[Rfam]
RNA sequence: UCAUGUAGAAGCAUCCGGCCGGUUCAGCUUCGGUCUGGUGUGGAGUGCUGCUUGGGCAAGCGCUGCCGCAGGCUGAAUAGGGAUAUCCCGAAAGAAAGCGUCUGUG
Numbered sequence: 001u002c003a004u005g006u007a008g009a010a011g012c013a014u015c016c017g018g019c020c021g022g023u024u025c026a027g028c029u030u031c032g033g034u035c036u037g038g039u040g041u042g043g044a045g046u047g048c049u050g051c052u053u054g055g056g057c058a059a060g061c062g063c064u065g066c067c068g069c070a071g072g073c074u075g076a077a078u079a080g081g082g083a084u085a086u087c088c089c090g091a092a093a094g095a096a097a098g099c100g101u102c103u104g105u106g
Stems, first nucleotide, its partner, number of pairs: 002047003011041005017035005024076004060101003080089003
A member of the RNA family "drum RNA", 106 nucleotides long. Pairs were carried over by alignment from the consensus structure, which is taken from published work. By type it is a small RNA. Firmicutes, Bacteroidetes (1 example), Proteobacteria (2 examples), Spirochaetes (2 examples).